[Rfam]
RNA sequence: CCGCGGGUCAAAAGUCCCGCCCGGGAACUGGUUCGCUGCACCCGGCAGCAAUCGGAGCGACGGCGGAGGUAACAAAGCCGUUGGAGCACUCCGGUGUAGAGGGUCGCUGUAGGCGACUUGGCGAGUCUGCAGGCCGUAAUGCGC
Numbered sequence: 001c002c003g004c005g006g007g008u009c010a011a012a013a014g015u016c017c018c019g020c021c022c023g024g025g026a027a028c029u030g031g032u033u034c035g036c037u038g039c040a041c042c043c044g045g046c047a048g049c050a051a052u053c054g055g056a057g058c059g060a061c062g063g064c065g066g067a068g069g070u071a072a073c074a075a076a077g078c079c080g081u082u083g084g085a086g087c088a089c090u091c092c093g094g095u096g097u098a099g100a101g102g103g104u105c106g107c108u109g110u111a112g113g114c115g116a117c118u119u120g121g122c123g124a125g126u127c128u129g130c131a132g133g134c135c136g137u138a139a140u141g142c143g144c
Base pairs, nucleotide, nucleotide: 021045022044023043024042025041053093054092055091056090057089058083059082060081061080062079063078068073102118103117104116105115106114107113121137122136123135